[Rfam]
RNA sequence: UUGACUGCGAAGUAGCGUGCGGAGGAUUUGAAGGCAAACCUCUGAACAGAGCUGAUAUCCCAUGUUGGCACUAGAGUCGGAUGACUGUGCAAGAGAACAGGAAGUCCAAGUAGCUGGUUGACUCGAAGUGUUAGGAGGGCUGAGUUAGAGGGAAAGUGUAUGAU
Numbered sequence: 001u002u003g004a005c006u007g008c009g010a011a012g013u014a015g016c017g018u019g020c021g022g023a024g025g026a027u028u029u030g031a032a033g034g035c036a037a038a039c040c041u042c043u044g045a046a047c048a049g050a051g052c053u054g055a056u057a058u059c060c061c062a063u064g065u066u067g068g069c070a071c072u073a074g075a076g077u078c079g080g081a082u083g084a085c086u087g088u089g090c091a092a093g094a095g096a097a098c099a100g101g102a103a104g105u106c107c108a109a110g111u112a113g114c115u116g117g118u119u120g121a122c123u124c125g126a127a128g129u130g131u132u133a134g135g136a137g138g139g140c141u142g143a144g145u146u147a148g149a150g151g152g153a154a155a156g157u158g159u160a161u162g163a164u
Stems, first nucleotide, its partner, number of pairs: 002015001004013003028163003034157002039151006047142003059139003063135001068131003072126001074124005079107004085100004
RNA: Group II catalytic intron D1-D4-3